[Rfam]
The record is a 92-nucleotide RNA sequence from Hucho hucho, which matches "mir-1388 microRNA precursor family" in Rfam. NCBI's taxonomy places the organism under Eukaryota, Craniata, Teleostomi, Neopterygii, Hucho. It scores 89 bits against the family's covariance model. The family's consensus secondary structure was predicted with RNAalifold. On this family, see Soares et al., BMC Genomics 2009: "Parallel DNA pyrosequencing unveils new zebrafish microRNAs".
RNA sequence: UCUGGAGCGGUGCUUUCCAGGACUGUCCAACCUGAGAAUGGUGACUUUAGACUCAAUCUCAGGUUCGUCAGCCCAUGAAACACUGUCUCACA
Numbered sequence: 001u002c003u004g005g006a007g008c009g010g011u012g013c014u015u016u017c018c019a020g021g022a023c024u025g026u027c028c029a030a031c032c033u034g035a036g037a038a039u040g041g042u043g044a045c046u047u048u049a050g051a052c053u054c055a056a057u058c059u060c061a062g063g064u065u066c067g068u069c070a071g072c073c074c075a076u077g078a079a080a081c082a083c084u085g086u087c088u089c090a091c092a
Base pairs, nucleotide, nucleotide: 005089006088007087008085009084010083011082012081014080015079016078017077020074021073023071024070025069027067029065030064031063032062033061034060035059036058037057039055040054